The record is a 114-nucleotide RNA sequence from Thermacetogenium phaeum, which matches "SAM riboswitch aptamer (S box leader)" in Rfam. The source organism's lineage runs through Bacteria, Bacillati, Thermoanaerobacteraceae, Thermacetogenium and Thermacetogenium phaeum.
RNA sequence: CUCUUAUCAAGAGUGGUGGAGGGACGGGCCCAAUGAAACCCGGCAACCGGCCCUGGAUUGGCGACGGGGCGCUGGUGCUAAUUCCUGCAGAAUGUAUAUUCUGGGAGAUAAGAG
Numbered sequence: 001c002u003c004u005u006a007u008c009a010a011g012a013g014u015g016g017u018g019g020a021g022g023g024a025c026g027g028g029c030c031c032a033a034u035g036a037a038a039c040c041c042g043g044c045a046a047c048c049g050g051c052c053c054u055g056g057a058u059u060g061g062c063g064a065c066g067g068g069g070c071g072c073u074g075g076u077g078c079u080a081a082u083u084c085c086u087g088c089a090g091a092a093u094g095u096a097u098a099u100u101c102u103g104g105g106a107g108a109u110a111a112g113a114g
Stems, first nucleotide, its partner, number of pairs: 001114008013041001015040003021031003025087004042079004047075002050070006083106001088103006